[Rfam]
RNA sequence: AGAGGCACAAUGAGGAGAAAUUAUAGUAGUGGUAUUUAUGAGAUUCAUAAAUCAAUGACUAAAAAUUUUAGUCCUUUUCAUUCUGAGUGCCUU
Numbered sequence: 001a002g003a004g005g006c007a008c009a010a011u012g013a014g015g016a017g018a019a020a021u022u023a024u025a026g027u028a029g030u031g032g033u034a035u036u037u038a039u040g041a042g043a044u045u046c047a048u049a050a051a052u053c054a055a056u057g058a059c060u061a062a063a064a065a066u067u068u069u070a071g072u073c074c075u076u077u078u079c080a081u082u083c084u085g086a087g088u089g090c091c092u093u
Stems, first nucleotide, its partner, number of pairs: 004091005010081005043052003
Shown here is a 93-nucleotide RNA from Malus domestica, a member of the family "Small nucleolar RNA Z162".
The family's consensus secondary structure was predicted with PFOLD.
Rfam classes the family as a C/D-box small nucleolar RNA.
Its family is annotated with nucleolus and RNA processing in the Gene Ontology.
The organism belongs to Malus, within Eukaryota.